[Rfam]
Source information: Rfam assigns this 105-nucleotide RNA from Caldibacillus thermoamylovorans to the family "SAM riboswitch aptamer (S box leader)". Rfam describes the family as follows. The SAM riboswitch is found upstream of a number of genes which code for proteins involved in methionine or cysteine biosynthesis in Gram-positive bacteria.
RNA sequence: CUCUUAUCCCGAGAUGGUGGAGGGACAGGCCCGAGGAAACCCGGCAACCUACUUAUUGCAAGUAAGGUGCUAACCGAUGCAAGGUGAUUCCUUGAACGAUAAGAG
Numbered sequence: 001c002u003c004u005u006a007u008c009c010c011g012a013g014a015u016g017g018u019g020g021a022g023g024g025a026c027a028g029g030c031c032c033g034a035g036g037a038a039a040c041c042c043g044g045c046a047a048c049c050u051a052c053u054u055a056u057u058g059c060a061a062g063u064a065a066g067g068u069g070c071u072a073a074c075c076g077a078u079g080c081a082a083g084g085u086g087a088u089u090c091c092u093u094g095a096a097c098g099a100u101a102a103g104a105g
Stems, first nucleotide, its partner, number of pairs: 001105008013042001016041003022032003026079002043071004048067002050064004080094005